[Rfam]
RNA sequence: UGGUCUAUGAUGACAAACAUAUGUCAUGAAGACAGGUGAUGGCAUAAAAAUCAUGCUCAGGUUCCGGAUGCUGAGGCCC
Dot-bracket structure: .((((..((...........................................................))..)..))).
The family of this 79-nucleotide RNA sequence from Mesocricetus auratus is "Small nucleolar RNA SNORD115". Rfam classes the family as a C/D-box small nucleolar RNA. Gene Ontology terms of the family: RNA processing and nucleolus. Taxonomically the source falls in Mesocricetus (Eukaryota, Deuterostomia, Craniata, Dipnotetrapodomorpha). A reference for the family is Cavaille et al. (2000), "Identification of brain-specific and imprinted small nucleolar RNA genes exhibiting an unusual genomic organization", Proc Natl Acad Sci U S A. The family's consensus secondary structure was predicted with PFOLD.